[Rfam]
Background:
A member of the RNA family "mir-31 microRNA precursor family" from Strongylocentrotus purpuratus, 84 nucleotides long. The base pairs follow the family's consensus structure, which was predicted with RNAalifold. The sequence is in the family's curated seed alignment. The literature on the family includes a 2003 paper in Dev Cell by Aravin et al., "The small RNA profile during Drosophila melanogaster development". Taxonomically the source falls in Strongylocentrotus (Eukaryota, Eumetazoa, Echinacea, Camarodonta).
RNA sequence: CAGUGGAGAAAAGGCAAGAUGUUGGCAUAGCUGUGAUUUAAAUAUUAACCCAGCUGUGUCUUCAUACUGCCAUUUAUUCACUUG
Numbered sequence: 001c002a003g004u005g006g007a008g009a010a011a012a013g014g015c016a017a018g019a020u021g022u023u024g025g026c027a028u029a030g031c032u033g034u035g036a037u038u039u040a041a042a043u044a045u046u047a048a049c050c051c052a053g054c055u056g057u058g059u060c061u062u063c064a065u066a067c068u069g070c071c072a073u074u075u076a077u078u079c080a081c082u083u084g
Stems, first nucleotide, its partner, number of pairs: 005079003009075003013071004019065003024060008